[Rfam]
RNA sequence: UGUUCUUCUGGCAACUGGCGAUAGAGUGGAAUAACCACGAGGAAGCCCGGAGAACUGAACACAACAGUCGCUCGCCUGGGCUGGAUAU
Numbered sequence: 001u002g003u004u005c006u007u008c009u010g011g012c013a014a015c016u017g018g019c020g021a022u023a024g025a026g027u028g029g030a031a032u033a034a035c036c037a038c039g040a041g042g043a044a045g046c047c048c049g050g051a052g053a054a055c056u057g058a059a060c061a062c063a064a065c066a067g068u069c070g071c072u073c074g075c076c077u078g079g080g081c082u083g084g085a086u087a088u
Stems, first nucleotide, its partner, number of pairs: 003054006010047003015042002017076005026038004065083005

Notes: This 88-nucleotide RNA from Dictyobacter kobayashii belongs to the Rfam family "ZMP/ZTP riboswitch aptamer (pfl RNA motif)". It scores 61 bits against the family's covariance model. The literature on the family includes a 2015 paper in Nat Struct Mol Biol by Jones and Ferre-D'Amare, "Recognition of the bacterial alarmone ZMP through long-distance association of two RNA subdomains". Rfam links the family to the GO terms one-carbon metabolic process and regulation of purine nucleotide biosynthetic process.